[Rfam]
RNA sequence: CGCCGCUGACCAUCUUUCUUGGACGUUUCCUCCCUAAACUUGGCGGUGUCUUCGGACACCGCCUUUUUUUUGCCCGGG
Numbered sequence: 001c002g003c004c005g006c007u008g009a010c011c012a013u014c015u016u017u018c019u020u021g022g023a024c025g026u027u028u029c030c031u032c033c034c035u036a037a038a039c040u041u042g043g044c045g046g047u048g049u050c051u052u053c054g055g056a057c058a059c060c061g062c063c064u065u066u067u068u069u070u071u072g073c074c075c076g077g078g
Stems, first nucleotide, its partner, number of pairs: 008024001010022002042063009